The family of this 69-nucleotide RNA from Cinara cedri is "mir-2 microRNA precursor family". The family's consensus secondary structure was predicted with PFOLD. Gene Ontology terms of the family: RISC complex and miRNA-mediated post-transcriptional gene silencing. Taxonomically the source falls in Cinara (Eukaryota, Protostomia, Panarthropoda, Cinara).

RNA sequence: UAAAUGGUCAAAUCGGAUGUGACGUGUUGAUAAAUAAAAUCAUAUCACAGCCGUUUUUGACAAUUUUGG
Numbered sequence: 001u002a003a004a005u006g007g008u009c010a011a012a013u014c015g016g017a018u019g020u021g022a023c024g025u026g027u028u029g030a031u032a033a034a035u036a037a038a039a040u041c042a043u044a045u046c047a048c049a050g051c052c053g054u055u056u057u058u059g060a061c062a063a064u065u066u067u068g069g
Base pairs, nucleotide, nucleotide: 005063007061008060009059010058011057012056014053015052016051018049019048020047021046022045025044026043027042